[Rfam]
RNA: Small nucleolar RNA SNORD121A
RNA sequence: GUCCAAAAUACAGUGAUGUUGUCUUUUCUAAGCACAUAUCUGAUUGCUCUGUGUGAAAAAUGACUGUUGCUAAGUGUGGGGU
Numbered sequence: 001g002u003c004c005a006a007a008a009u010a011c012a013g014u015g016a017u018g019u020u021g022u023c024u025u026u027u028c029u030a031a032g033c034a035c036a037u038a039u040c041u042g043a044u045u046g047c048u049c050u051g052u053g054u055g056a057a058a059a060a061u062g063a064c065u066g067u068u069g070c071u072a073a074g075u076g077u078g079g080g081g082u
Stems, first nucleotide, its partner, number of pairs: 001082004008077004